[Rfam]
RNA sequence: UCCGCAGCGGGAAGCUCUGACGCGCGGCCCAUCUACGGCCGCCGGGACCGCGCCGAGCCACUGGCGAGACCGACCCGCGAGUCA
Numbered sequence: 001u002c003c004g005c006a007g008c009g010g011g012a013a014g015c016u017c018u019g020a021c022g023c024g025c026g027g028c029c030c031a032u033c034u035a036c037g038g039c040c041g042c043c044g045g046g047a048c049c050g051c052g053c054c055g056a057g058c059c060a061c062u063g064g065c066g067a068g069a070c071c072g073a074c075c076c077g078c079g080a081g082u083c084a
Stems, first nucleotide, its partner, number of pairs: 001084001007078005014058002022053006029046001037071002040066004